[Rfam]
RNA sequence: UUCUUAUCGAGAGAGAUGGAGGGAUAGGCCCUAGGAAAUCUCAGCAACCAGCCUAAAGUGGUCAGGUGCUAAUUCCGUCAGACGUUAUGUCUGAGAGAUAGGAU
Dot-bracket structure: .(((((((....(((((...(((...[[)))......)))))((((.((.(((......)))..))))))...(]]..((((((...))))))..)))))))).
The family of this 104-nucleotide RNA sequence from Salibacterium salarium is "SAM riboswitch aptamer (S box leader)". A search with the family's covariance model found it, with a score of 85 bits. NCBI's taxonomy places the organism under Bacteria, Bacilli, Caryophanales, Bacillaceae, Salibacterium.